[Rfam]
RNA sequence: AAAUUCAGUAGAGGCGCGGUAUUUAUCAGUAAAUAUAUGGAUAUAUAUGGAGGUAGAUGAUAUGUGUUGAAAGGGGAUACCGCCGAAGGAAGCAGUUAUCCAUAGAGCUGUAACCUGGUUGUGCAGCGAAUAACUGUAUGACUGUCAUCGUCACAGAUGGAGGGCUACUUUUUAA
Numbered sequence: 001a002a003a004u005u006c007a008g009u010a011g012a013g014g015c016g017c018g019g020u021a022u023u024u025a026u027c028a029g030u031a032a033a034u035a036u037a038u039g040g041a042u043a044u045a046u047a048u049g050g051a052g053g054u055a056g057a058u059g060a061u062a063u064g065u066g067u068u069g070a071a072a073g074g075g076g077a078u079a080c081c082g083c084c085g086a087a088g089g090a091a092g093c094a095g096u097u098a099u100c101c102a103u104a105g106a107g108c109u110g111u112a113a114c115c116u117g118g119u120u121g122u123g124c125a126g127c128g129a130a131u132a133a134c135u136g137u138a139u140g141a142c143u144g145u146c147a148u149c150g151u152c153a154c155a156g157a158u159g160g161a162g163g164g165c166u167a168c169u170u171u172u173u174a175a
Stems, first nucleotide, its partner, number of pairs: 007169005016083009032068008087116003092111006117143010145160005
The family of this 175-nucleotide RNA sequence from Clostridium sp. L2-50 is "Lysine riboswitch aptamer". The family's consensus secondary structure is taken from published work. The organism belongs to Clostridium, within Bacteria. It scores 109 bits against the family's covariance model.